[Rfam]
RNA sequence: AUUCAUCUUCGGGGCAGGGUGAAAUUCCCGAUCGGCGGUGAUAGAAGUUGCAAUUUCUGACCAUUUUUUGGAGGAUGUUGUAAAAAGCUUCUUUAGCCCGCGAGCUUGAUUUUUGAGCAGGAUUUGGUGCGAUUCCAAAGCCGACAGUAUAGUCUGGAUGGGAGAAGGUGAAG
Dot-bracket structure: ..((((((((......(((.......))).[[((((((...........................................................))))..(((.........)))....(((((.......)))))..)).(((....]]))).......))))))))..
RNA: FMN riboswitch aptamer (RFN element)